[Rfam]
RNA sequence: AAUGAGACGGAUGGGACCACUGCAGAGGCAUUCACAUUACAACUCCUGUCAGAUUCCCUAUGAAUCUGUGAAUUCUACA
Numbered sequence: 001a002a003u004g005a006g007a008c009g010g011a012u013g014g015g016a017c018c019a020c021u022g023c024a025g026a027g028g029c030a031u032u033c034a035c036a037u038u039a040c041a042a043c044u045c046c047u048g049u050c051a052g053a054u055u056c057c058c059u060a061u062g063a064a065u066c067u068g069u070g071a072a073u074u075c076u077a078c079a
Base pairs, nucleotide, nucleotide: 013046014045015044021079022078024076025075026074027073028040030038050068051067052066053065054064055063056062
The record is a 79-nucleotide RNA sequence from Geotrypetes seraphini, which matches "Mammalian CPEB3 ribozyme" in Rfam. The family's consensus secondary structure is taken from published work. A search with the family's covariance model found it, with a score of 47 bits. Rfam's curators write: The mammalian CPEB3 ribozyme is a self cleaving RNA located in the second intron of the CPEB3 gene which belongs to a family of genes regulating messenger RNA polyadenylation.